Purine riboswitch aptamer: a 104-nucleotide RNA from Paenibacillus sp. PvR098. Pairs were carried over by alignment from the consensus structure, which is taken from published work. Rfam describes the family as follows. Riboswitches are metabolite binding domains within certain messenger RNAs that serve as precision sensors for their corresponding targets. Allosteric rearrangement of mRNA structure is mediated by ligand binding, and this results in modulation of gene expression. A class of riboswitches that selectively recognises guanine and becomes saturated at concentrations as low as 5 nM. In Bacillus subtilis, this mRNA motif is located on at least five separate transcriptional units that together encode 17 genes that are mostly involved in purine transport and purine nucleotide biosynthesis. It has also been shown that some members of this family are specific for adenine instead. Hence this family are termed purine riboswitches.
[Rfam]
RNA sequence: GUAAAAUAUCAUACAACAACUCGUAUAAUUUUGGGGAUAUGGCCCAUAAGUUUCUACCGGACGACCACUUUAAUCGACCGACUAUGAGUGAAAGCGCAUCUAGG
Numbered sequence: 001g002u003a004a005a006a007u008a009u010c011a012u013a014c015a016a017c018a019a020c021u022c023g024u025a026u027a028a029u030u031u032u033g034g035g036g037a038u039a040u041g042g043c044c045c046a047u048a049a050g051u052u053u054c055u056a057c058c059g060g061a062c063g064a065c066c067a068c069u070u071u072a073a074u075c076g077a078c079c080g081a082c083u084a085u086g087a088g089u090g091a092a093a094g095c096g097c098a099u100c101u102a103g104g
Stems, first nucleotide, its partner, number of pairs: 019089007029049002032046004058080003062076003